Rfam assigns this 136-nucleotide RNA from Carlito syrichta to the family "Small nucleolar RNA SNORA8". From the family's description: ACA8 is a member of the H/ACA class of snoRNA that guide the sites of modification of uridines to pseudouridines. Rfam 15.1 lists 1,490 matches to the family in 610 species. The family is grouped with related families in Rfam's "SNORA8 clan". NCBI's taxonomy places the organism under Eukaryota, Opisthokonta, Chordata, Theria, Carlito. By type it is an H/ACA-box small nucleolar RNA.

RNA sequence: UGACUUUGGUAUCUAUGCUCAACAGUGUAUUCUUUCUGGGGUGUUCCAAGGUCAGCACCACAGAAAAUCAGCAUCUGGUUUGGUUGGCUUUCUUGGUUUUGUGAAUGUUAAACCUGGCUUUUCUGUUGAUACAGUA
Dot-bracket structure: ((........(((((((((((..((.......))..).))))))....))))))......(((((((((((.......(.(...................).)..........)))).)))))))...........